[Rfam]
RNA sequence: UCCUGAGCGCGUGCUUCAGCACGAUGUUGCGGAAGGUCACGCCCUUGAGCCGCGCGGUGCGGAUGUAUUGCGCCGUCAUCACCUCGGCCAUCGAGGCACGGGUCAUCCGGGCGAUGUAGCCCAUGCCGAAGAGGGCGAUGGUCAGCACCGGCAGGAAGAAAUUCUCGAAGGUGGCGUUC
Numbered sequence: 001u002c003c004u005g006a007g008c009g010c011g012u013g014c015u016u017c018a019g020c021a022c023g024a025u026g027u028u029g030c031g032g033a034a035g036g037u038c039a040c041g042c043c044c045u046u047g048a049g050c051c052g053c054g055c056g057g058u059g060c061g062g063a064u065g066u067a068u069u070g071c072g073c074c075g076u077c078a079u080c081a082c083c084u085c086g087g088c089c090a091u092c093g094a095g096g097c098a099c100g101g102g103u104c105a106u107c108c109g110g111g112c113g114a115u116g117u118a119g120c121c122c123a124u125g126c127c128g129a130a131g132a133g134g135g136c137g138a139u140g141g142u143c144a145g146c147a148c149c150g151g152c153a154g155g156a157a158g159a160a161a162u163u164c165u166c167g168a169a170g171g172u173g174g175c176g177u178u179c
Stems, first nucleotide, its partner, number of pairs: 004141001006139001008137003012133001014131002016128001019126003028123002031120001038113001040111001042109001046105003050101003054097001055075008082096005145179001147177001149174001151172002154165004
Dot-bracket structure: ...(.(.(((.(.(((..(((......((.(......(.(.(...(((.(((.(((((((((.....))))))))......(((((.....)))))).))).)))...).).)......).))))).).)).).))).).)...(.(.(.((.((((....)))).....)).)..).)